Shown here is a 140-nucleotide sequence from Massilia forsythiae, a member of the family "FMN riboswitch aptamer (RFN element)".
A search with the family's covariance model found it, with a score of 122 bits.
RNA sequence: UUACGUCUUCGGGGCGGGGUGCGAUUCCCCACCGGCGGUAUGGCCAUCACGGCCGAGCCCGCGAGCGCCUGCGUUGCAGGGUCAGCAGACCUGGUGAGAAGCCAGGGCCGACGGUAUAGUCCGGAUGAAAGAAGAUGUGC
Numbered sequence: 001u002u003a004c005g006u007c008u009u010c011g012g013g014g015c016g017g018g019g020u021g022c023g024a025u026u027c028c029c030c031a032c033c034g035g036c037g038g039u040a041u042g043g044c045c046a047u048c049a050c051g052g053c054c055g056a057g058c059c060c061g062c063g064a065g066c067g068c069c070u071g072c073g074u075u076g077c078a079g080g081g082u083c084a085g086c087a088g089a090c091c092u093g094g095u096g097a098g099a100a101g102c103c104a105g106g107g108c109c110g111a112c113g114g115u116a117u118a119g120u121c122c123g124g125a126u127g128a129a130a131g132a133a134g135a136u137g138u139g140c
Base pairs, nucleotide, nucleotide: 003138004137005136006135007134008133009132010131017029018028019027031120032119033110034109035062036061037060038059057108058107065086066085090106091105092104093103094102112123113122114121
Rfam links the family to the GO term FMN binding. The RFN element is a highly conserved domain that is found frequently in the 5'-untranslated regions of prokaryotic mRNAs that encode for flavin mononucleotide (FMN) biosynthesis and transport proteins.